This 112-nucleotide RNA sequence from Giardia duodenalis belongs to the Rfam family "Small nucleolar RNA GlsR21". The organism belongs to Giardia duodenalis, within Eukaryota. The literature on the family includes a 2012 paper in Nucleic Acids Res by Hudson et al., "Evolutionarily divergent spliceosomal snRNAs and a conserved non-coding RNA processing motif in Giardia lamblia". Rfam links the family to the GO terms RNA processing and nucleolus. It is annotated as an H/ACA-box small nucleolar RNA. The base pairs follow the family's consensus structure, which was predicted with WAR.
[Rfam]
RNA sequence: AAAACCAAUAUUACUACCAUCGGUCCUCACCACUAGAUCGGUGCUAUGCUUUGUUGGGACAGCAGGCUGUGCCAGUUGGACAACUAAGGUCCAUCUACUGGUCCAGCACACA
Numbered sequence: 001a002a003a004a005c006c007a008a009u010a011u012u013a014c015u016a017c018c019a020u021c022g023g024u025c026c027u028c029a030c031c032a033c034u035a036g037a038u039c040g041g042u043g044c045u046a047u048g049c050u051u052u053g054u055u056g057g058g059a060c061a062g063c064a065g066g067c068u069g070u071g072c073c074a075g076u077u078g079g080a081c082a083a084c085u086a087a088g089g090u091c092c093a094u095c096u097a098c099u100g101g102u103c104c105a106g107c108a109c110a111c112a
Stems, first nucleotide, its partner, number of pairs: 005057006015046002018043008066107004071102006077093005